Rfam assigns this 217-nucleotide sequence from Chara braunii to the family "U2 spliceosomal RNA".
The base pairs follow the family's consensus structure, which is taken from published work.
On this family, see Zwieb, Nucleic Acids Res 1997: "The uRNA database".
[Rfam]
Nucleotides: 217
Stems, first nucleotide, its partner, number of pairs: 008027003012023004065084006086102007133170004138165003148159004173210006180202006
Number, partner (000 for none) and nucleotide at each position: 001000a002000u003000a004000c005000c006000u007000u008027u009026c010025u011000c012023g013022g014021c015020c016000g017000u018000u019000u020015g021014g022013c023012u024000a025010a026009g027008a028000a029000u030000a031000g032000a033000u034000a035000a036000a037000a038000a039000u040000u041000c042000a043000u044000a045000a046000a047000a048000u049000g050000c051000a052000c053000u054000g055000u056000a057000u058000c059000u060000g061000u062000u063000c064000u065084g066083a067082u068081c069080a070079g071000u072000u073000u074000a075000a076000u077000a078000u079070c080069u081068g082067a083066u084065c085000c086102g087101u088100g089099g090098u091097c092096c093000a094000u095000c096092g097091g098090g099089c100088c101087a102086c103000a104000u105000g106000a107000u108000a109000u110000g111000a112000a113000a114000u115000u116000a117000a118000u119000u120000u121000u122000u123000c124000u125000g126000g127000g128000c129000c130000a131000c132000g133170g134169a135168g136167g137000a138165g139164u140163c141000g142000g143000a144000c145000g146000g147000g148159u149158a150157g151156g152000c153000u154000u155000g156151c157150u158149u159148a160000c161000u162000c163140g164139a165138c166000c167136c168135c169134u170133c171000c172000a173210g174209c175208g176207u177206c178205g179000c180202c181201u182200c183199u184198g185197u186000a187000u188000u189000g190000c191000a192000c193000u194000g195000c196000u197185g198184c199183a200182g201181a202180g203000c204000g205178c206177g207176g208175c209174g210173c211000a212000g213000c214000c215000c216000u217000c